[Rfam]
RNA: Small nucleolar RNA Z39
Organism: Callithrix jacchus
RNA sequence: AUGCAUGUGAUGAAGCAAAUCAGGAUGAAUGUCAUGAUACUGUAAAUGCUUUCUGAUGAA
Numbered sequence: 001a002u003g004c005a006u007g008u009g010a011u012g013a014a015g016c017a018a019a020u021c022a023g024g025a026u027g028a029a030u031g032u033c034a035u036g037a038u039a040c041u042g043u044a045a046a047u048g049c050u051u052u053c054u055g056a057u058g059a060a
Stems, first nucleotide, its partner, number of pairs: 002060001004058002012052005021042003025038002